This 249-nucleotide part of an RNA from Barnesiella sp. WM24 belongs to the Rfam family "Bacterial large subunit ribosomal RNA". The match comes from Rfam's covariance-model search (2753 bits). Pairs were carried over by alignment from the consensus structure, which is taken from published work.

RNA sequence: AGGAGAUUUGCGGGGCUCCGACACUAGUACGAGAGGACCGUGUUGGACAGACCUCCGGUUUACCGGUUGUACCGCCAGGUGCACCGCCGGGUAUCCGCGUCUGGUCAGGAUAAGUGCUGAAAGCAUCUAAGCACGAAGCCCUCCCCAAGAUAAGAUCUCCACAUUAGGGUCGUUGUAGACUACGACGUAGAUAGGACGCAGGUGCAGGUGCAGCAAUGCACACAGCCGAGCGUUACUAAUCGCCCGAAC
Numbered sequence: 001a002g003g004a005g006a007u008u009u010g011c012g013g014g015g016c017u018c019c020g021a022c023a024c025u026a027g028u029a030c031g032a033g034a035g036g037a038c039c040g041u042g043u044u045g046g047a048c049a050g051a052c053c054u055c056c057g058g059u060u061u062a063c064c065g066g067u068u069g070u071a072c073c074g075c076c077a078g079g080u081g082c083a084c085c086g087c088c089g090g091g092u093a094u095c096c097g098c099g100u101c102u103g104g105u106c107a108g109g110a111u112a113a114g115u116g117c118u119g120a121a122a123g124c125a126u127c128u129a130a131g132c133a134c135g136a137a138g139c140c141c142u143c144c145c146c147a148a149g150a151u152a153a154g155a156u157c158u159c160c161a162c163a164u165u166a167g168g169g170u171c172g173u174u175g176u177a178g179a180c181u182a183c184g185a186c187g188u189a190g191a192u193a194g195g196a197c198g199c200a201g202g203u204g205c206a207g208g209u210g211c212a213g214c215a216a217u218g219c220a221c222a223c224a225g226c227c228g229a230g231c232g233u234u235a236c237u238a239a240u241c242g243c244c245c246g247a248a249c
Stems, first nucleotide, its partner, number of pairs: 002160008012146004018046007048103005056097003063090005068083006108140002114134005164247001167245004171187005192238003195234005201227002208221005